About this RNA:
This 79-nucleotide sequence from Paenibacillus oryzae belongs to the Rfam family "c-di-GMP-I-GGC riboswitch aptamer". Its Rfam clan is "c-di-GMP_I riboswitch clan". The match comes from Rfam's covariance-model search (69 bits). The family has 40 seed sequences and 1,298 matches in Rfam 15.1. The source organism's lineage runs through Bacteria, Bacilli, Caryophanales, Paenibacillaceae and Paenibacillus. For this family Rfam cites "Structural basis of ligand binding by a c-di-GMP riboswitch" (Smith et al., Nat Struct Mol Biol, 2009).
[Rfam]
RNA sequence: CGCGAUAAUGGCAAACCUAUCGAAAGAUAGGGACGCAAAGCUAUAGGGCCUUCCUGUUGAUGGCAGCCAGCUACCGAAU
Numbered sequence: 001c002g003c004g005a006u007a008a009u010g011g012c013a014a015a016c017c018u019a020u021c022g023a024a025a026g027a028u029a030g031g032g033a034c035g036c037a038a039a040g041c042u043a044u045a046g047g048g049c050c051u052u053c054c055u056g057u058u059g060a061u062g063g064c065a066g067c068c069a070g071c072u073a074c075c076g077a078a079u
Stems, first nucleotide, its partner, number of pairs: 003076002011036002016031006034066001039072004046068002048064003